About this RNA:
Shown here is a 128-nucleotide sequence from Weissella viridescens, a member of the family "Ribosomal protein L10 leader". It is annotated as a cis-regulatory leader.
[Rfam]
RNA sequence: AGUAAUCAAUAGAUUCUACCUAAGACGCAGGUGUCGUAAGACUUAAUAUCCAGCCGAGGAAGUGCAAAAAACGCGAAAGCGACUUUUGACCCUCGGUACAAUUGUGCCGAGGGUUUUAGUUAGGAUCA
Numbered sequence: 001a002g003u004a005a006u007c008a009a010u011a012g013a014u015u016c017u018a019c020c021u022a023a024g025a026c027g028c029a030g031g032u033g034u035c036g037u038a039a040g041a042c043u044u045a046a047u048a049u050c051c052a053g054c055c056g057a058g059g060a061a062g063u064g065c066a067a068a069a070a071a072c073g074c075g076a077a078a079g080c081g082a083c084u085u086u087u088g089a090c091c092c093u094c095g096g097u098a099c100a101a102u103u104g105u106g107c108c109g110a111g112g113g114u115u116u117u118a119g120u121u122a123g124g125a126u127c128a
Stems, first nucleotide, its partner, number of pairs: 027054002030051002033042003090113010